[Rfam]
RNA sequence: AAUUGUAACCUAUGUAAGUCGCUCUGGAUGAGAGCGUCUGCUAAAUUCCAAAAA
Numbered sequence: 001a002a003u004u005g006u007a008a009c010c011u012a013u014g015u016a017a018g019u020c021g022c023u024c025u026g027g028a029u030g031a032g033a034g035c036g037u038c039u040g041c042u043a044a045a046u047u048c049c050a051a052a053a054a
Stems, first nucleotide, its partner, number of pairs: 013043001014041003020036006
RNA: UnaL2 LINE 3' element
Organism: Megalops atlanticus